[Rfam]
RNA sequence: UACGUCUCACGUGACUGGCGAAAAGCUGCGAUUCAUGUGAAUUGGCAGUGAAAAGUGGGGUUAUCCACUGGGAAGCGUGAGAUUCAAUAGCCGUUCGCCUGGGCAGCCGAA
Dot-bracket structure: ...(((((((((..(([[[[[.................................((((......))))..))..)))))))))....(.(((..]]]]]..))).).....